[Rfam]
RNA sequence: UUGGUUUGUUUUAAGUCAAACUUGUCCAACUUUGACCAAGUUUAUAGAAAAAUAUAACAAUAUCUAUACUACCAAAUAUAUGCACUAUCAAAAUAUUAUUCCAUGGUGGAUUCAAUGAAACAAAUUUUGGUAUUGUAGAUGUUGUUAUAUUUUUCUAUAAAUUUGGUCAAAGUUGAACAAAUUUGACUUAGGACAAACCAAA
Numbered sequence: 001u002u003g004g005u006u007u008g009u010u011u012u013a014a015g016u017c018a019a020a021c022u023u024g025u026c027c028a029a030c031u032u033u034g035a036c037c038a039a040g041u042u043u044a045u046a047g048a049a050a051a052a053u054a055u056a057a058c059a060a061u062a063u064c065u066a067u068a069c070u071a072c073c074a075a076a077u078a079u080a081u082g083c084a085c086u087a088u089c090a091a092a093a094u095a096u097u098a099u100u101c102c103a104u105g106g107u108g109g110a111u112u113c114a115a116u117g118a119a120a121c122a123a124a125u126u127u128u129g130g131u132a133u134u135g136u137a138g139a140u141g142u143u144g145u146u147a148u149a150u151u152u153u154u155c156u157a158u159a160a161a162u163u164u165g166g167u168c169a170a171a172g173u174u175g176a177a178c179a180a181a182u183u184u185g186a187c188u189u190a191g192g193a194c195a196a197a198c199c200a201a202a
Base pairs, nucleotide, nucleotide: 005197006196007195008194009193011191012190013189014188015187016186017185018184019183020182022180023179024178025177031171032170033169034168035167045157046156047155048154049153050152051151052150055147056146057145059143060142061141062140063139064138065137066136067135068134072130073129074128075127076125077124
RNA: MIR1435 microRNA precursor family